[Rfam]
RNA: small nucleolar RNA snoR126
RNA sequence: GGGCUGUGAUGACCGAGAACAUUUCUUGAUUCUGAUGAGGACCAAAGCAAGUUGUUUGCUCUAUGAUGACAGUGUUUGUGCGUGUCUGAGCCUA
Numbered sequence: 001g002g003g004c005u006g007u008g009a010u011g012a013c014c015g016a017g018a019a020c021a022u023u024u025c026u027u028g029a030u031u032c033u034g035a036u037g038a039g040g041a042c043c044a045a046a047g048c049a050a051g052u053u054g055u056u057u058g059c060u061c062u063a064u065g066a067u068g069a070c071a072g073u074g075u076u077u078g079u080g081c082g083u084g085u086c087u088g089a090g091c092c093u094a
Stems, first nucleotide, its partner, number of pairs: 001093004